[Rfam]
RNA sequence: UCCACUGAGCCAUCUCUCCAGCCCCUUUAAAACUUUUUUUAAAGAAUGGCUGUGGAGGGGCUGGUGAGAUGGCUCAGUGGU
Numbered sequence: 001u002c003c004a005c006u007g008a009g010c011c012a013u014c015u016c017u018c019c020a021g022c023c024c025c026u027u028u029a030a031a032a033c034u035u036u037u038u039u040u041a042a043a044g045a046a047u048g049g050c051u052g053u054g055g056a057g058g059g060g061c062u063g064g065u066g067a068g069a070u071g072g073c074u075c076a077g078u079g080g081u
Stems, first nucleotide, its partner, number of pairs: 002080015018064009
Shown here is an 81-nucleotide RNA sequence from Octodon degus, a member of the family "mir-3473 microRNA precursor family". The match comes from Rfam's covariance-model search (77 bits).